The record is a 127-nucleotide sequence from Rattus norvegicus, which matches "Small nucleolar RNA SNORA11" in Rfam. For this family Rfam cites "A novel experimental approach for systematic identification of box H/ACA snoRNAs from eukaryotes" (Gu et al., Nucleic Acids Res, 2005). The source organism's lineage runs through Eukaryota, Metazoa, Chordata, Sarcopterygii and Rattus. From the family's description: U107 (SNORA11) is a member of the H/ACA class of snoRNAs that guide the sites of modification of uridines to pseudouridines. This snoRNA was identified by RT-PCR from blood cells and its expression confirmed by Northern blot analysis. The match comes from Rfam's covariance-model search (105 bits).
RNA sequence: GGGGUGUGCUCAGAGCAGAGGGCCUGAAGAAUGGCUUCUCUGUUUACAACACACCCAAGAAGAAUCUGGGACCAUUGAAAUGUGGGGCACAAGCAGUUUCCUCUCUGUGUGUGGAUCCCCUACAUGU
Numbered sequence: 001g002g003g004g005u006g007u008g009c010u011c012a013g014a015g016c017a018g019a020g021g022g023c024c025u026g027a028a029g030a031a032u033g034g035c036u037u038c039u040c041u042g043u044u045u046a047c048a049a050c051a052c053a054c055c056c057a058a059g060a061a062g063a064a065u066c067u068g069g070g071a072c073c074a075u076u077g078a079a080a081u082g083u084g085g086g087g088c089a090c091a092a093g094c095a096g097u098u099u100c101c102u103c104u105c106u107g108u109g110u111g112u113g114g115a116u117c118c119c120c121u122a123c124a125u126g127u
Stems, first nucleotide, its partner, number of pairs: 002056007013045009022035003069120002076113002081109002084102003089097001